[Rfam]
The family of this 317-nucleotide RNA is "Nuclear RNase P". The family's consensus secondary structure is taken from published work. Its family is annotated with ribonuclease P complex, ribonuclease P activity and tRNA processing in the Gene Ontology. The sequence is in the family's curated seed alignment. It is annotated as a ribozyme. On this family, see Frank and Pace, Annu Rev Biochem 1998: "Ribonuclease P: unity and diversity in a tRNA processing ribozyme".
RNA sequence: GGAAGGAAGCUCACUGUAGAGGCUACUUGCUGGGUGCUGUUGUUACUCUAUCAACCAGCCUUGGGGAAGGUCUGAGAUAAGAGCCACUUGUUGCCUUCACAAGGCAUUGCUUGGUGUAAGCAAGUGAGUUCCCAUCAAAGAUGGCUCAGUUGCAAGCUUAAUGCAAGAGACAUAGCAAAGAAGCCCAAUAUACUUCUGAUAUGGAUGCAAUGCCCAACAGACUGGAAAUGACUCACGGCUGGCAUGUUCAAGCUCAAUGACUGAGGGGAAGCAAGUGAUGGCUUCCUAACCCAAUUCAGACCACUCUCCGGAAUUCC
Number, nucleotide and partner (000 for none) at each position: 001g317002g316003a315004a314005g309006g308007a307008a000009g000010c265011u264012c263013a262014c000015u260016g000017u000018a000019g062020a061021g060022g059023c000024u000025a000026c000027u000028u000029g000030c000031u000032g048033g047034g046035u045036g044037c042038u000039g000040u000041u000042g037043u000044u036045a035046c034047u033048c032049u000050a000051u000052c000053a000054a000055c000056c000057a000058g000059c022060c021061u020062u019063g000064g000065g000066g000067a000068a000069g000070g000071u000072c299073u298074g297075a296076g295077a000078u000079a000080a000081g000082a240083g239084c238085c237086a000087c000088u000089u000090g000091u000092u106093g105094c104095c103096u102097u000098c000099a000100c000101a000102a096103g095104g094105c093106a092107u123108u122109g121110c120111u119112u118113g000114g000115u000116g000117u000118a112119a111120g110121c109122a108123a107124g236125u235126g234127a233128g232129u231130u230131c000132c000133c000134a000135u000136c000137a000138a000139a000140g000141a000142u000143g000144g000145c220146u219147c000148a000149g000150u000151u000152g000153c000154a000155a000156g000157c000158u000159u000160a000161a000162u000163g000164c000165a000166a000167g000168a000169g000170a000171c000172a000173u000174a000175g000176c000177a000178a000179a000180g000181a000182a000183g000184c000185c000186c000187a000188a000189u000190a000191u000192a000193c000194u000195u000196c000197u000198g000199a000200u000201a000202u000203g000204g000205a000206u000207g000208c000209a000210a000211u000212g000213c000214c000215c000216a000217a000218c000219a146220g145221a000222c000223u000224g000225g000226a000227a000228a000229u000230g130231a129232c128233u127234c126235a125236c124237g085238g084239c083240u082241g000242g000243c000244a000245u000246g000247u000248u000249c000250a000251a000252g000253c000254u000255c000256a000257a000258u000259g000260a015261c000262u013263g012264a011265g010266g287267g286268g285269a284270a283271g282272c281273a000274a000275g000276u000277g000278a000279u000280g000281g272282c271283u270284u269285c268286c267287u266288a000289a000290c000291c000292c000293a000294a000295u076296u075297c074298a073299g072300a000301c000302c000303a000304c000305u000306c000307u007308c006309c005310g000311g000312a000313a000314u004315u003316c002317c001
The family has 116 seed sequences and 3,848 matches in Rfam 15.1. Ribonuclease P (RNase P) is a ubiquitous endoribonuclease, found in archaea, bacteria and eukarya as well as chloroplasts and mitochondria. Its best characterised activity is the generation of mature 5'-ends of tRNAs by cleaving the 5'-leader elements of precursor-tRNAs. Cellular RNase Ps are ribonucleoproteins. RNA from bacterial RNase Ps retains its catalytic activity in the absence of the protein subunit, i.e. it is a ribozyme.